[Rfam]
RNA sequence: AAGUAAUAGAAUAGGUGACUCAAGGGUGGUCGGCCAUUUCCCGUAAGAAGGGAGGUGGUCGCAUGUCAGUAUCUGAAGCGAUAAUGCUUAUGUUAACAUUUGGAGCAUUAGGGAAGGCAGUCUAAGAACGCGACGUCCUGUCGCAACGACUGCAUGACCCGCAUCCUGCGGGCCUCAAUACUGUCGUUCCACAAUAAAAAAUAAUCCAUCCUUGAGUGGGUAGCUCAUACUGGAUGGAUUAUUUUUAUCACCCGAGCCGAUCCCCCUGAAGGGAACCUGCUAUUACAGACCGUCUAAUGUUAGCGCAUUGGGCG
Numbered sequence: 001a002a003g004u005a006a007u008a009g010a011a012u013a014g015g016u017g018a019c020u021c022a023a024g025g026g027u028g029g030u031c032g033g034c035c036a037u038u039u040c041c042c043g044u045a046a047g048a049a050g051g052g053a054g055g056u057g058g059u060c061g062c063a064u065g066u067c068a069g070u071a072u073c074u075g076a077a078g079c080g081a082u083a084a085u086g087c088u089u090a091u092g093u094u095a096a097c098a099u100u101u102g103g104a105g106c107a108u109u110a111g112g113g114a115a116g117g118c119a120g121u122c123u124a125a126g127a128a129c130g131c132g133a134c135g136u137c138c139u140g141u142c143g144c145a146a147c148g149a150c151u152g153c154a155u156g157a158c159c160c161g162c163a164u165c166c167u168g169c170g171g172g173c174c175u176c177a178a179u180a181c182u183g184u185c186g187u188u189c190c191a192c193a194a195u196a197a198a199a200a201a202u203a204a205u206c207c208a209u210c211c212u213u214g215a216g217u218g219g220g221u222a223g224c225u226c227a228u229a230c231u232g233g234a235u236g237g238a239u240u241a242u243u244u245u246u247a248u249c250a251c252c253c254g255a256g257c258c259g260a261u262c263c264c265c266c267u268g269a270a271g272g273g274a275a276c277c278u279g280c281u282a283u284u285a286c287a288g289a290c291c292g293u294c295u296a297a298u299g300u301u302a303g304c305g306c307a308u309u310g311g312g313c314g
Stems, first nucleotide, its partner, number of pairs: 002284004007279003012260001014258003019216008028206003034058003038054005065185001067183005078093003103176003227245001261274004291314010
Dot-bracket structure: .((((.(((..(.(((..((((((((.(((...(((.(((((.......))))).)))......(.(((((......(((..........))).........(((....................................................................)))..))))).)..................)))..))))))))..........(.................)..........))).)((((......))))..))).))))......((((((((((....))))))))))
RNA: BsrG